[Rfam]
RNA sequence: CCUCGGGCUCACGCCCGAGGCUACAAUAUGUCGUCCCUCCGGGACU
Numbered sequence: 001c002c003u004c005g006g007g008c009u010c011a012c013g014c015c016c017g018a019g020g021c022u023a024c025a026a027u028a029u030g031u032c033g034u035c036c037c038u039c040c041g042g043g044a045c046u
Base pairs, nucleotide, nucleotide: 001020002019003018004017005016006015007014008013033045034044035043036042037041